[Rfam]
RNA: TrkB IRES
RNA sequence: UCCCUGUGCGCCUCUAGCCAGAAGCCUGCGCCUCGGAGAGUCCCGGGCAGCGCCCGGCGCGCCGGGCCAUGCAGCGACGGCCGCGGCGGAGCUCGCAGCGGCGGUAGCGCCCCCUGUGAGGCGGCCCGCGAUGCCCCGGCCGCUGUGAACUGUGCAGCCCGCCCGAACGCGCGCCGCCCGGGCCGGCUCAGCCUUGGGCACUCUGGACUGCGAGCGGCCGCGACGAGCAGCCAGGAGUCGAUAGAGCUGCAGGCGCGGGGAAGGCCUGCCCGCACAGGUGGGGGAAGCCGGCCGGUGCAGCAGCGCGGGGACAGACACUCGGGCUGGCGCUGGCGGCGAGGG
Numbered sequence: 001u002c003c004c005u006g007u008g009c010g011c012c013u014c015u016a017g018c019c020a021g022a023a024g025c026c027u028g029c030g031c032c033u034c035g036g037a038g039a040g041u042c043c044c045g046g047g048c049a050g051c052g053c054c055c056g057g058c059g060c061g062c063c064g065g066g067c068c069a070u071g072c073a074g075c076g077a078c079g080g081c082c083g084c085g086g087c088g089g090a091g092c093u094c095g096c097a098g099c100g101g102c103g104g105u106a107g108c109g110c111c112c113c114c115u116g117u118g119a120g121g122c123g124g125c126c127c128g129c130g131a132u133g134c135c136c137c138g139g140c141c142g143c144u145g146u147g148a149a150c151u152g153u154g155c156a157g158c159c160c161g162c163c164c165g166a167a168c169g170c171g172c173g174c175c176g177c178c179c180g181g182g183c184c185g186g187c188u189c190a191g192c193c194u195u196g197g198g199c200a201c202u203c204u205g206g207a208c209u210g211c212g213a214g215c216g217g218c219c220g221c222g223a224c225g226a227g228c229a230g231c232c233a234g235g236a237g238u239c240g241a242u243a244g245a246g247c248u249g250c251a252g253g254c255g256c257g258g259g260g261a262a263g264g265c266c267u268g269c270c271c272g273c274a275c276a277g278g279u280g281g282g283g284g285a286a287g288c289c290g291g292c293c294g295g296u297g298c299a300g301c302a303g304c305g306c307g308g309g310g311a312c313a314g315a316c317a318c319u320c321g322g323g324c325u326g327g328c329g330c331u332g333g334c335g336g337c338g339a340g341g342g
Base pairs, nucleotide, nucleotide: 001284002283003282004281005280006279007278010275021043023041026036027035028034045270046269047099050096051095052094053089054088055086057084058083059082061081062080063079064078066075067074101146102145103144104143105142107141109140110139111138116134117133118132121129122128123127150260151259153257154256155255157254158253161250162249165247170244174240176238177237178235179234183206184205185204186203188198189197191195209233210232216228289336291334292333293332294331295330296329297328298327299325300324301323306321307320308319309318